Rfam assigns this 70-nucleotide RNA from Steinernema hermaphroditum to the family "mir-71 microRNA precursor family".
A search with the family's covariance model found it, with a score of 65 bits.
Lineage of the source: Eukaryota > Ecdysozoa > Panagrolaimomorpha > Steinernematidae > Steinernema.
The base pairs follow the family's consensus structure, which was predicted with RNAalifold.
On this family, see Li et al., BMC Genomics 2009: "Direct sequencing and expression analysis of a large number of miRNAs in Aedes aegypti and a multi-species survey of novel mosquito miRNAs".

Nucleotides: 070
Base pairs, nucleotide, nucleotide: 008062009061010060011059012058013057014056015055017054018053019052021050022049023048024047025046027044028043029042
Number, partner (000 for none) and nucleotide at each position: 001000c002000g003000a004000g005000g006000g007000u008062g009061a010060a011059a012058g013057a014056c015055a016000u017054g018053g019052g020000u021050a022049g023048u024047g025046a026000g027044a028043c029042g030000c031000u032000g033000u034000g035000u036000u037000u038000g039000g040000g041000u042029c043028g044027u045000a046025u047024c048023a049022c050021u051000a052019u053018u054017c055015u056014g057013u058012u059011u060010u061009u062008c063000a064000c065000c066000u067000u068000u069000g070000g